[Rfam]
RNA: mir-2807 microRNA precursor family
Organism: Bombyx mori
RNA sequence: UUAAAUCAAAUUUGUAUGCAUUUGGAACAGCGCUCCUAGCGGCAAACGUAGGCCAACGUUCCAACUCGAUACAAACUUGAGUUA
Numbered sequence: 001u002u003a004a005a006u007c008a009a010a011u012u013u014g015u016a017u018g019c020a021u022u023u024g025g026a027a028c029a030g031c032g033c034u035c036c037u038a039g040c041g042g043c044a045a046a047c048g049u050a051g052g053c054c055a056a057c058g059u060u061c062c063a064a065c066u067c068g069a070u071a072c073a074a075a076c077u078u079g080a081g082u083u084a
Base pairs, nucleotide, nucleotide: 008078009077011075012074013073014072015071016070020066022064023063024062025061026060027059028058034052035051039047